Notes
tRNA: a 74-nucleotide sequence from Verrucomicrobium sp. GAS474. About the family: Transfer RNA (tRNA) molecules are approximately 80 nucleotides in length. It scores 71 bits against the family's covariance model. Taxonomically the source falls in Verrucomicrobium (Bacteria, Verrucomicrobiota, Verrucomicrobiia, Verrucomicrobiales). Rfam links the family to the GO term triplet codon-amino acid adaptor activity.

[Rfam]
RNA sequence: GUGCCCGUAGCUCAGUUGGAUAGAGCAGCAGAUUUCUAAUCUGCUGGUCGCUGGUUCGAAUCCAGCCGGGCAUG
Numbered sequence: 001g002u003g004c005c006c007g008u009a010g011c012u013c014a015g016u017u018g019g020a021u022a023g024a025g026c027a028g029c030a031g032a033u034u035u036c037u038a039a040u041c042u043g044c045u046g047g048u049c050g051c052u053g054g055u056u057c058g059a060a061u062c063c064a065g066c067c068g069g070g071c072a073u074g
Stems, first nucleotide, its partner, number of pairs: 001073007010026004028044005050066005